[Rfam]
RNA sequence: GCACCACCGCUGGAUGAGGCCUCCUCCCGCCCGGUCUGACGCACUUCCCCGGUGUCAGACGGUCGCGGAGGGAGACCUGAUCCAGCAGGUGGGCACAG
Numbered sequence: 001g002c003a004c005c006a007c008c009g010c011u012g013g014a015u016g017a018g019g020c021c022u023c024c025u026c027c028c029g030c031c032c033g034g035u036c037u038g039a040c041g042c043a044c045u046u047c048c049c050c051g052g053u054g055u056c057a058g059a060c061g062g063u064c065g066c067g068g069a070g071g072g073a074g075a076c077c078u079g080a081u082c083c084a085g086c087a088g089g090u091g092g093g094c095a096c097a098g
Stems, first nucleotide, its partner, number of pairs: 010085006018077002021074005027068004032062001034060009
This 98-nucleotide RNA from Sanguibacter sp. Leaf3 belongs to the Rfam family "mraW RNA". By type it is a cis-regulatory element.